RNA: mir-252 microRNA precursor family
Organism: Aphidius gifuensis
RNA sequence: GCAGUGUGCUAAGUAGUUGUGCCGUAGGUGAUUUGUUAUGAUAGCUUCACCUUCGCACCAUUACUUUACAUAUUGG
Number, nucleotide and partner (000 for none) at each position: 001g000002c075003a074004g073005u072006g071007u070008g000009c000010u000011a066012a065013g064014u063015a062016g061017u060018u000019g058020u000021g000022c000023c000024g054025u000026a052027g051028g050029u049030g048031a000032u000033u000034u000035g000036u000037u000038a000039u000040g000041a000042u000043a000044g000045c000046u000047u000048c030049a029050c028051c027052u026053u000054c024055g000056c000057a000058c019059c000060a017061u016062u015063a014064c013065u012066u011067u000068a000069c000070a007071u006072a005073u004074u003075g002076g000